[Rfam]
The record is a 187-nucleotide RNA from Steroidobacter agaridevorans, which matches "6S / SsrS RNA" in Rfam.
A reference for the family is Wassarman and Storz (2000), "6S RNA regulates E. coli RNA polymerase activity", Cell.
A search with the family's covariance model found it, with a score of 76 bits.
The family's consensus secondary structure is taken from published work.
RNA sequence: CGCUGCCUGCGGUGUUCGACGUGUGUCGGGUUACCUCUCGACCCUAACGUUAAUACCCCAGGGAUUCGGUUUCGUGGUAGCCGUGUGCAAGUCCGUCUCGAACGGGAAGCCUUAGCUAUCAUGGCUGCGUCCCACCUAUUGCUCCGUGUCGAGAGCAAUGGCUCAUGACGGCACAGGCGGGUAGCGC
Numbered sequence: 001c002g003c004u005g006c007c008u009g010c011g012g013u014g015u016u017c018g019a020c021g022u023g024u025g026u027c028g029g030g031u032u033a034c035c036u037c038u039c040g041a042c043c044c045u046a047a048c049g050u051u052a053a054u055a056c057c058c059c060a061g062g063g064a065u066u067c068g069g070u071u072u073c074g075u076g077g078u079a080g081c082c083g084u085g086u087g088c089a090a091g092u093c094c095g096u097c098u099c100g101a102a103c104g105g106g107a108a109g110c111c112u113u114a115g116c117u118a119u120c121a122u123g124g125c126u127g128c129g130u131c132c133c134a135c136c137u138a139u140u141g142c143u144c145c146g147u148g149u150c151g152a153g154a155g156c157a158a159u160g161g162c163u164c165a166u167g168a169c170g171g172c173a174c175a176g177g178c179g180g181g182u183a184g185c186g187c
Stems, first nucleotide, its partner, number of pairs: 002185009012174004017170002035155003039151004044146001061133003065129001067127004072123001075121007087110002092106005